A member of the RNA family "Small nucleolar SNORD12/SNORD106" from Rattus norvegicus, 89 nucleotides long. On this family, see Vitali et al., Nucleic Acids Res 2003: "Identification of 13 novel human modification guide RNAs". A search with the family's covariance model found it, with a score of 95 bits. NCBI's taxonomy places the organism under Eukaryota, Deuterostomia, Craniata, Boreoeutheria, Rattus.
[Rfam]
RNA sequence: GCAGGCAUGUGUGAUGACUCAACUUUUUUCCCCAUCAGAUCGACCAUGUUGAUCACAGUCUUUUAAGCCAGUUUAUCUGACAUGCCUGC
Numbered sequence: 001g002c003a004g005g006c007a008u009g010u011g012u013g014a015u016g017a018c019u020c021a022a023c024u025u026u027u028u029u030c031c032c033c034a035u036c037a038g039a040u041c042g043a044c045c046a047u048g049u050u051g052a053u054c055a056c057a058g059u060c061u062u063u064u065a066a067g068c069c070a071g072u073u074u075a076u077c078u079g080a081c082a083u084g085c086c087u088g089c
Base pairs, nucleotide, nucleotide: 001089002088003087004086005085006084007083008082009081